This 95-nucleotide sequence from Canis lupus belongs to the Rfam family "mir-8799 microRNA precursor family".
Clan: mir-8791 microRNA precursor clan.
The family's consensus secondary structure was predicted with RNAalifold.
Rfam 15.1 lists 20,638 matches to the family in 5 species.
RNA sequence: GGAGGGAAUGCAGGAUCCUGGGCUGUGUCCCUCAGCUCCCUGGGAUCUGGGGCCUGAGCCGCUGGAAUCACACUCCUGGGGCCACGCAGCCGCCC
Numbered sequence: 001g002g003a004g005g006g007a008a009u010g011c012a013g014g015a016u017c018c019u020g021g022g023c024u025g026u027g028u029c030c031c032u033c034a035g036c037u038c039c040c041u042g043g044g045a046u047c048u049g050g051g052g053c054c055u056g057a058g059c060c061g062c063u064g065g066a067a068u069c070a071c072a073c074u075c076c077u078g079g080g081g082c083c084a085c086g087c088a089g090c091c092g093c094c095c
Stems, first nucleotide, its partner, number of pairs: 001095002005091002010087002013083002017079002020076003024072004028066003033061001035059004042054001044053001046051001